[Rfam]
RNA sequence: AAUAACCUCAUUUUUCGUUUUUCCGUGUCCAACGUUUGACUAUUCGUCUUAUUUGAAAAAUUUGUACAAAAACUUUAAAAAAUUAGUCACGUAUAAAGUACUAUUCAUAUUUUAUCAUCUAGUAAUAAUAAAAAUAUUAAUCGCAAAAAAAUUUCAAAUAAGACGAAUGGUUAAACGUUGGACACGGAAAA
Numbered sequence: 001a002a003u004a005a006c007c008u009c010a011u012u013u014u015u016c017g018u019u020u021u022u023c024c025g026u027g028u029c030c031a032a033c034g035u036u037u038g039a040c041u042a043u044u045c046g047u048c049u050u051a052u053u054u055g056a057a058a059a060a061u062u063u064g065u066a067c068a069a070a071a072a073c074u075u076u077a078a079a080a081a082a083u084u085a086g087u088c089a090c091g092u093a094u095a096a097a098g099u100a101c102u103a104u105u106c107a108u109a110u111u112u113u114a115u116c117a118u119c120u121a122g123u124a125a126u127a128a129u130a131a132a133a134a135u136a137u138u139a140a141u142c143g144c145a146a147a148a149a150a151a152u153u154u155c156a157a158a159u160a161a162g163a164c165g166a167a168u169g170g171u172u173a174a175a176c177g178u179u180g181g182a183c184a185c186g187g188a189a190a191a
Base pairs, nucleotide, nucleotide: 028182029181030180031179032178033177035175036174037173038172039171040170041169042168043167044166045165046164047163048162049161050160051159052158
Dot-bracket structure: ...........................((((((.((((((((((((((((((.........................................................................................................)))))))))))))))))).)))))).........

About this RNA
Rfam assigns this 191-nucleotide sequence from Oryza brachyantha to the family "MIR812 microRNA precursor family". The base pairs follow the family's consensus structure, which was predicted with RNAalifold. The family has 22 seed sequences and 57,451 matches in Rfam 15.1. Rfam links the family to the GO terms RISC complex and miRNA-mediated post-transcriptional gene silencing.